[Rfam]
RNA sequence: CCUUAACCCCGAUGGGAACGGCAUCCUCCUGACUGGUGAACGAACCAGACAGGAGAUAUAGUGGACAGCGGGACCCAAU
Number, nucleotide and partner (000 for none) at each position: 001c000002c000003u000004u000005a000006a000007c000008c000009c071010c070011g069012a000013u067014g066015g000016g000017a000018a062019c061020g000021g000022c000023a057024u056025c055026c000027u000028c053029c052030u051031g050032a000033c048034u047035g046036g045037u044038g000039a000040a000041c000042g000043a000044a037045c036046c035047a034048g033049a000050c031051a030052g029053g028054a000055g025056a024057u023058a000059u000060a000061g019062u018063g000064g000065a000066c014067a013068g000069c011070g010071g009072g000073a000074c000075c000076c000077a000078a000079u000
Flavo-1 RNA: a 79-nucleotide sequence from Flavobacterium succinicans. NCBI's taxonomy places the organism under Bacteria, Pseudomonadati, Flavobacteriia, Flavobacteriales, Flavobacterium.